[Rfam]
RNA sequence: AUACAUCUGUAUCUACGGCAGGGAGUGCUAAAAAGUUACGCCUUUGGAUAUGUGAUGCGAUUUGACCUGCAAGCGAAUGCGUUGGAGAUCAAACUCUGUAAAAUCCC
Numbered sequence: 001a002u003a004c005a006u007c008u009g010u011a012u013c014u015a016c017g018g019c020a021g022g023g024a025g026u027g028c029u030a031a032a033a034a035g036u037u038a039c040g041c042c043u044u045u046g047g048a049u050a051u052g053u054g055a056u057g058c059g060a061u062u063u064g065a066c067c068u069g070c071a072a073g074c075g076a077a078u079g080c081g082u083u084g085g086a087g088a089u090c091a092a093a094c095u096c097u098g099u100a101a102a103a104u105c106c107c
Stems, first nucleotide, its partner, number of pairs: 017029004035066003039059003045055001046051001084097004
This 107-nucleotide RNA from Helicobacter suis belongs to the Rfam family "Heliobacter pylori small RNA HPnc0580". For this family Rfam cites "The primary transcriptome of the major human pathogen Helicobacter pylori" (Sharma et al., Nature, 2010). A search with the family's covariance model found it, with a score of 74 bits.